[Rfam]
Rfam assigns this 101-nucleotide sequence from Thermoflavimicrobium dichotomicum to the family "Purine riboswitch aptamer". The organism belongs to Thermoflavimicrobium, within Bacteria. A search with the family's covariance model found it, with a score of 72 bits.

RNA sequence: AAAUUAAAUAUGGUUAAACCUCGUAUAACCUCAACAAUAUGGGUUGGGGGUCUCUACUGGAAACCGUAAAUUUCCUAGCUACGAGAAAACACCACUACCAG
Numbered sequence: 001a002a003a004u005u006a007a008a009u010a011u012g013g014u015u016a017a018a019c020c021u022c023g024u025a026u027a028a029c030c031u032c033a034a035c036a037a038u039a040u041g042g043g044u045u046g047g048g049g050g051u052c053u054c055u056a057c058u059g060g061a062a063a064c065c066g067u068a069a070a071u072u073u074c075c076u077a078g079c080u081a082c083g084a085g086a087a088a089a090c091a092c093c094a095c096u097a098c099c100a101g
Base pairs, nucleotide, nucleotide: 020085021084022083023082024081025080029049030048031047032046033045034044035043058077059075060074061073062072063071

Rfam's curators write: Riboswitches are metabolite binding domains within certain messenger RNAs that serve as precision sensors for their corresponding targets. The base pairs follow the family's consensus structure, which is taken from published work.